A member of the RNA family "mir-203 microRNA precursor family" from Salmo salar, 59 nucleotides long. Gene Ontology terms of the family: miRNA-mediated post-transcriptional gene silencing and RISC complex. The literature on the family includes a 2003 paper in Science by Lim et al., "Vertebrate microRNA genes". It is one of the family's seed sequences. The family's consensus secondary structure was predicted with RNAalifold.
[Rfam]
RNA sequence: AGUGGUUCUAAAUAGUUCAACAGUCUAUACCGAAAUUGUGAAAUGUUUAGGACCACUUG
Number, nucleotide and partner (000 for none) at each position: 001a057002g056003u055004g054005g053006u052007u000008c050009u049010a000011a047012a046013u045014a044015g000016u042017u041018c040019a039020a000021c000022a000023g000024u000025c000026u000027a000028u000029a000030c000031c000032g000033a000034a000035a000036u000037u000038g000039u019040g018041a017042a016043a000044u014045g013046u012047u011048u000049a009050g008051g000052a006053c005054c004055a003056c002057u001058u000059g000